The family of this 78-nucleotide RNA sequence from Chrysodeixis includens is "mir-2767 microRNA precursor family".
[Rfam]
RNA sequence: UUUACCGUCGACACAAGUAAAUCUCGUGCGGCCUGUCUUAAUUCAAGCCGCAAGAGAUUUAUUUACGUUGAUAGUAAA
Numbered sequence: 001u002u003u004a005c006c007g008u009c010g011a012c013a014c015a016a017g018u019a020a021a022u023c024u025c026g027u028g029c030g031g032c033c034u035g036u037c038u039u040a041a042u043u044c045a046a047g048c049c050g051c052a053a054g055a056g057a058u059u060u061a062u063u064u065a066c067g068u069u070g071a072u073a074g075u076a077a078a
Stems, first nucleotide, its partner, number of pairs: 006074001007072006015064011027052006034045002
A search with the family's covariance model found it, with a score of 70 bits.
NCBI's taxonomy places the organism under Eukaryota, Allotriocarida, Aparaglossata, Obtectomera, Chrysodeixis.
Pairs were carried over by alignment from the consensus structure, which was predicted with RNAalifold.